[Rfam]
RNA sequence: CGAGGCCCGUGCGGCGUGGCCUCUGCCCGAGCCGGCCCUGGCGUACUUCCCCAACGCCAGGUCCAAGGUUUCGGACAGAGACCUCGUCGCAGGGGCAGGCCAUA
Numbered sequence: 001c002g003a004g005g006c007c008c009g010u011g012c013g014g015c016g017u018g019g020c021c022u023c024u025g026c027c028c029g030a031g032c033c034g035g036c037c038c039u040g041g042c043g044u045a046c047u048u049c050c051c052c053a054a055c056g057c058c059a060g061g062u063c064c065a066a067g068g069u070u071u072c073g074g075a076c077a078g079a080g081a082c083c084u085c086g087u088c089g090c091a092g093g094g095g096c097a098g099g100c101c102a103u104a
Base pairs, nucleotide, nucleotide: 010091011090012089013088014087015086016085018083019082021080022079023078024077025076027074028073029072030071031070033068034064035063037061038060039059040058041057042056043055044054

mraW RNA: a 104-nucleotide sequence from Mycobacterium dioxanotrophicus. The match comes from Rfam's covariance-model search (74 bits).